[Rfam]
RNA sequence: AAGCCCCGCGCGGGAGAGACCCUCGGGGAAAACCGGGGGCGCCGAAGGAGCAACCGCCCCGGAAUCUCUCAGGCACCAGGGACCGCGCGAGGAUA
Dot-bracket structure: ......(((((((......((((............)))).(((((..(((...((.....))...))))).)))........)))))))......
Numbered sequence: 001a002a003g004c005c006c007c008g009c010g011c012g013g014g015a016g017a018g019a020c021c022c023u024c025g026g027g028g029a030a031a032a033c034c035g036g037g038g039g040c041g042c043c044g045a046a047g048g049a050g051c052a053a054c055c056g057c058c059c060c061g062g063a064a065u066c067u068c069u070c071a072g073g074c075a076c077c078a079g080g081g082a083c084c085g086c087g088c089g090a091g092g093a094u095a
Stems, first nucleotide, its partner, number of pairs: 007089007020039004041074003044070002048068003054062002
Notes:
Rfam assigns this 95-nucleotide RNA sequence from Sphingomonas sp. CFBP 8760 to the family "Glycine riboswitch aptamer". It scores 62 bits against the family's covariance model.